Shown here is a 366-nucleotide sequence from Lonepinella koalarum, a member of the family "transfer-messenger RNA". The match comes from Rfam's covariance-model search (260 bits). Gene Ontology term of the family: RNA catabolic process. Rfam classes the family as a non-coding RNA gene. The family's consensus secondary structure is taken from published work.

RNA sequence: GGGGCUGAUCUUGGAUUCGACGGGAUUGGCGAAGUCCAAAGUGCACGUCAAGGUGCGGUAGGCCUUGUAAAUAAACCGCAAAACAAUAGUCGCAAACGACGAACAAUACGCUUUAGCAGCUUAAUAACCUGCUCAUCGCCUUCGCUCCCUAGCUUCCGCUCGUAAGACGGGGAUCAAGCGGAGUCAAACCCAAACGAGAUCGUGUGAAGGCUUCGGCUUGGAGUUGACACAUUAAAUCCAAUCAAGCUAGUUUAUCUUUUCGCGUGUCUGUCCGCAGGGGGUAAGCGAAUUUAAAGACUGACUAAACGUGUAGUACUGAAGAUAGAGUAAUUUCGGACGGGGGUUCAACUCCCCCCAGCUCCACCA
Numbered sequence: 001g002g003g004g005c006u007g008a009u010c011u012u013g014g015a016u017u018c019g020a021c022g023g024g025a026u027u028g029g030c031g032a033a034g035u036c037c038a039a040a041g042u043g044c045a046c047g048u049c050a051a052g053g054u055g056c057g058g059u060a061g062g063c064c065u066u067g068u069a070a071a072u073a074a075a076c077c078g079c080a081a082a083a084c085a086a087u088a089g090u091c092g093c094a095a096a097c098g099a100c101g102a103a104c105a106a107u108a109c110g111c112u113u114u115a116g117c118a119g120c121u122u123a124a125u126a127a128c129c130u131g132c133u134c135a136u137c138g139c140c141u142u143c144g145c146u147c148c149c150u151a152g153c154u155u156c157c158g159c160u161c162g163u164a165a166g167a168c169g170g171g172g173a174u175c176a177a178g179c180g181g182a183g184u185c186a187a188a189c190c191c192a193a194a195c196g197a198g199a200u201c202g203u204g205u206g207a208a209g210g211c212u213u214c215g216g217c218u219u220g221g222a223g224u225u226g227a228c229a230c231a232u233u234a235a236a237u238c239c240a241a242u243c244a245a246g247c248u249a250g251u252u253u254a255u256c257u258u259u260u261c262g263c264g265u266g267u268c269u270g271u272c273c274g275c276a277g278g279g280g281g282u283a284a285g286c287g288a289a290u291u292u293a294a295a296g297a298c299u300g301a302c303u304a305a306a307c308g309u310g311u312a313g314u315a316c317u318g319a320a321g322a323u324a325g326a327g328u329a330a331u332u333u334c335g336g337a338c339g340g341g342g343g344u345u346c347a348a349c350u351c352c353c354c355c356c357a358g359c360u361c362c363a364c365c366a
Stems, first nucleotide, its partner, number of pairs: 001362007021335008034323003040317003044310005049067005054080006114135001116132004140183006147172004153166003159198005203231004215248006250286010262275003266302003270298003339355005
Dot-bracket structure: (((((((.............((((((((.....(((...(((.((((([[[[[((((((...]]]]].......)))))).................................(.((((.........))))..)....((((((.((((..(((...[[[[[)))..)))).....))))))..........]]]]]....[[[[........((((((.......]]]]...........)))))).((((((((((..(((.[[[.[[[))).)))))))))).........]]].]]]...)))))....)))...)))....))))))))...(((((.......))))))))))))....
About this RNA:
Taxonomically the source falls in Lonepinella (Bacteria, Pseudomonadota, Gammaproteobacteria, Pasteurellales).